[Rfam]
RNA sequence: CUUUACAUUGAUUUGCUGCUCUAGUCUUUUAGUAAGCAGUUAUACACAUGGGAGAGAACAAUAGGCUGUUGUAAAUGGAGUUGGAGUAACAAUUUCAUCUCUUCUGUGAAGUCCAGAUAUUG
Dot-bracket structure: ..((.(((......((((((..(.(......)).)))))).......))).))..........((((..((((....(((.((((((....)))))).)))...)))).)))).........
A member of the RNA family "Small nucleolar RNA SNORA20" from Neomonachus schauinslandi, 122 nucleotides long. It scores 63 bits against the family's covariance model. The family's consensus secondary structure was predicted with ILM. ACA20 is a member of the H/ACA class of snoRNA that guide the sites of modification of uridines to pseudouridines. By type it is an H/ACA-box small nucleolar RNA. The source organism's lineage runs through Eukaryota, Deuterostomia, Euteleostomi, Phocidae and Neomonachus.